[Rfam]
RNA sequence: GUCGGGAAAUGAUGAUAAGAUAUCAAUAUUACAUAUGCUAUGCAAUGGUGAACCUAAAUUUGCACGUCAGUCUGAUCCCAGC
Numbered sequence: 001g002u003c004g005g006g007a008a009a010u011g012a013u014g015a016u017a018a019g020a021u022a023u024c025a026a027u028a029u030u031a032c033a034u035a036u037g038c039u040a041u042g043c044a045a046u047g048g049u050g051a052a053c054c055u056a057a058a059u060u061u062g063c064a065c066g067u068c069a070g071u072c073u074g075a076u077c078c079c080a081g082c
Stems, first nucleotide, its partner, number of pairs: 001082002004079004
Small nucleolar RNA Z122: an 82-nucleotide RNA sequence from Raphanus sativus.
Gene Ontology terms of the family: RNA processing and nucleolus.
On this family, see Chen et al., Nucleic Acids Res 2003: "The high diversity of snoRNAs in plants: identification and comparative study of 120 snoRNA genes from Oryza sativa".
The family's consensus secondary structure was predicted with PFOLD.